bZIP non canonical Hac1/Xbp1 intron: a 65-nucleotide sequence from Colletotrichum gloeosporioides. On this family, see Hooks and Griffiths-Jones, RNA Biol 2011: "Conserved RNA structures in the non-canonical Hac1/Xbp1 intron". bZIP intron RNA is a non-canonical intron that was first reported in HAC1 gene in yeast and XBP1 gene in Metazoa. Taxonomically the source falls in Colletotrichum gloeosporioides (Eukaryota, Fungi, sordariomyceta, Glomerellaceae). The family's RNA type in Rfam is small RNA.

RNA sequence: UCCUCCGACUUGACACAACGUCCUGCAGCGAUGUUGUGCGACCUGCAGUGUCAACAGUCGGAGGA
Numbered sequence: 001u002c003c004u005c006c007g008a009c010u011u012g013a014c015a016c017a018a019c020g021u022c023c024u025g026c027a028g029c030g031a032u033g034u035u036g037u038g039c040g041a042c043c044u045g046c047a048g049u050g051u052c053a054a055c056a057g058u059c060g061g062a063g064g065a
Base pairs, nucleotide, nucleotide: 001065002064003063004062006060007059008058009057010056017035018034019033020032021031022030040052041051042050